[Rfam]
RNA sequence: GAGUCACCGUCGCCGGCGAGGCUAAGUGCGAAGACGCACGGAGCCGAAGCGAAAGCGAGUCUGAACAAGGCGAUACAGUCGGCGGGGGUGGACGCGAAACCAAGUGAUCUACCCUUGGGCAGGUUGAAGGACGGGUAACACCGUCUGGAGGACCGAACCGGUAAGCGUUGAAAAGCUUUCGGAUGACCUGAGGGUAGGAGUGAAAGGCCAAUCAAACUUGGAGAUAGCUCGUA
Numbered sequence: 001g002a003g004u005c006a007c008c009g010u011c012g013c014c015g016g017c018g019a020g021g022c023u024a025a026g027u028g029c030g031a032a033g034a035c036g037c038a039c040g041g042a043g044c045c046g047a048a049g050c051g052a053a054a055g056c057g058a059g060u061c062u063g064a065a066c067a068a069g070g071c072g073a074u075a076c077a078g079u080c081g082g083c084g085g086g087g088g089u090g091g092a093c094g095c096g097a098a099a100c101c102a103a104g105u106g107a108u109c110u111a112c113c114c115u116u117g118g119g120c121a122g123g124u125u126g127a128a129g130g131a132c133g134g135g136u137a138a139c140a141c142c143g144u145c146u147g148g149a150g151g152a153c154c155g156a157a158c159c160g161g162u163a164a165g166c167g168u169u170g171a172a173a174a175g176c177u178u179u180c181g182g183a184u185g186a187c188c189u190g191a192g193g194g195u196a197g198g199a200g201u202g203a204a205a206g207g208c209c210a211a212u213c214a215a216a217c218u219u220g221g222a223g224a225u226a227g228c229u230c231g232u233a
Stems, first nucleotide, its partner, number of pairs: 005090004010085008020045004026039003049056002059071004093231002096228001100221006109197011120185001122154004129146006158182003163178004200208002
Bacterial large subunit ribosomal RNA: a 233-nucleotide part of an RNA from Barnesiella sp. WM24. It scores 2753 bits against the family's covariance model.